[Rfam]
Rfam assigns this 84-nucleotide RNA from Temnothorax longispinosus to the family "Small nucleolar RNA snoR110". For this family Rfam cites "Experimental RNomics: identification of 140 candidates for small non-messenger RNAs in the plant Arabidopsis thaliana" (Marker et al., Curr Biol, 2002).
RNA sequence: GCUAGAUUUCUUGCACCGUUUAUCUUUUCUCUUUUUCUCUCUAUGUUGGAAAAAAAGAGAAAAAGAAUAACGGUGCAAAAGUUU
Numbered sequence: 001g002c003u004a005g006a007u008u009u010c011u012u013g014c015a016c017c018g019u020u021u022a023u024c025u026u027u028u029c030u031c032u033u034u035u036u037c038u039c040u041c042u043a044u045g046u047u048g049g050a051a052a053a054a055a056a057g058a059g060a061a062a063a064a065g066a067a068u069a070a071c072g073g074u075g076c077a078a079a080a081g082u083u084u
Stems, first nucleotide, its partner, number of pairs: 012077007022068002031065003036060001038058003042054001

By type it is an H/ACA-box small nucleolar RNA. Its family is annotated with RNA processing and nucleolus in the Gene Ontology. The organism belongs to Temnothorax, within Eukaryota.